Overview
The family of this 91-nucleotide sequence from Lactobacillus acidophilus is "TPP riboswitch aptamer (THI element)". The source organism's lineage runs through Bacteria, Bacillota, Lactobacillales, Lactobacillus and Lactobacillus acidophilus. The base pairs follow the family's consensus structure, which is taken from published work. A search with the family's covariance model found it, with a score of 65 bits. About the family: Vitamin B(1) in its active form thiamin pyrophosphate (TPP) is an essential coenzyme that is synthesised by coupling of pyrimidine and thiazole moieties in bacteria. The previously detected thiamin-regulatory element, thi box was extended, resulting in a new, highly conserved RNA secondary structure, the THI element, which is widely distributed in eubacteria and also occurs in some archaea. Analysis of operon structures identified a large number of new candidate thiamin-regulated genes, mostly transporters, in various prokaryotic organisms. The THI element is a riboswitch that directly binds to TPP to regulate gene expression through a variety of mechanisms in archaea, bacteria and eukaryotes. through a variety of mechanisms in archaea, bacteria and eukaryotes.
RNA sequence: AUAAGUCACUAGGGGUGCUGAAAAGCUGAGAUAUACCCUUCGAACUUGAACAAGGUAAUGCUUGCGAUAAGGAAAGUGCUAAUUAUAGAUC
Numbered sequence: 001a002u003a004a005g006u007c008a009c010u011a012g013g014g015g016u017g018c019u020g021a022a023a024a025g026c027u028g029a030g031a032u033a034u035a036c037c038c039u040u041c042g043a044a045c046u047u048g049a050a051c052a053a054g055g056u057a058a059u060g061c062u063u064g065c066g067a068u069a070a071g072g073a074a075a076g077u078g079c080u081a082a083u084u085a086u087a088g089a090u091c
Stems, first nucleotide, its partner, number of pairs: 007078004011039004016033001017026003045071004051064004